[Rfam]
RNA sequence: AACAUGGAACAUAAAAACACGGUCCGGUUGGUAGUCCGGAUGCGCCGAAUUGACCGGUGUCGUAUCCUUCCCCCCUCGGGAUGUCCAUUGUUCAUUAUUUU
Number, nucleotide and partner (000 for none) at each position: 001a000002a000003c000004a096005u000006g000007g093008a092009a091010c090011a089012u000013a000014a000015a000016a000017a000018c000019a000020c000021g000022g041023u040024c039025c038026g037027g036028u000029u000030g000031g000032u000033a000034g000035u000036c027037c026038g025039g024040a023041u022042g060043c059044g058045c057046c056047g055048a000049a000050u000051u000052g000053a000054c000055c047056g046057g045058u044059g043060u042061c000062g000063u000064a000065u000066c000067c000068u000069u081070c000071c080072c079073c078074c000075c000076u000077c000078g073079g072080g071081a069082u000083g000084u000085c000086c000087a000088u000089u011090g010091u009092u008093c007094a000095u000096u004097a000098u000099u000100u000101u000
This 101-nucleotide RNA sequence from Desulfitobacterium hafniense belongs to the Rfam family "azaaromatic riboswitch aptamer (yjdF RNA)".
Taxonomically the source falls in Desulfitobacterium hafniense (Bacteria, Clostridia, Desulfitobacteriaceae, Desulfitobacterium).
The sequence is in the family's curated seed alignment.
The family's consensus secondary structure is taken from published work.